[Rfam]
FMN riboswitch aptamer (RFN element): a 127-nucleotide sequence from Virgisporangium aliadipatigenens. For this family Rfam cites "A conserved RNA structure element involved in the regulation of bacterial riboflavin synthesis genes" (Gelfand et al., Trends Genet, 1999). About the family: The RFN element is a highly conserved domain that is found frequently in the 5'-untranslated regions of prokaryotic mRNAs that encode for flavin mononucleotide (FMN) biosynthesis and transport proteins.
RNA sequence: GGGAUCGGUGAAAUUCCGAACCGGCGGUGACCGGCCGAGCGAUCGGCCGCAGCCCGCGACCCGGCCGAAGCCAUCGGCCGGUGGACCUGGUGAGAAUCCAGGGCCGACGGUGAGAGUCCGGAUGGGA
Numbered sequence: 001g002g003g004a005u006c007g008g009u010g011a012a013a014u015u016c017c018g019a020a021c022c023g024g025c026g027g028u029g030a031c032c033g034g035c036c037g038a039g040c041g042a043u044c045g046g047c048c049g050c051a052g053c054c055c056g057c058g059a060c061c062c063g064g065c066c067g068a069a070g071c072c073a074u075c076g077g078c079c080g081g082u083g084g085a086c087c088u089g090g091u092g093a094g095a096a097u098c099c100a101g102g103g104c105c106g107a108c109g110g111u112g113a114g115a116g117u118c119c120g121g122a123u124g125g126g127a
Stems, first nucleotide, its partner, number of pairs: 006018003020117002022106002024057004052104002061081002086102005108120003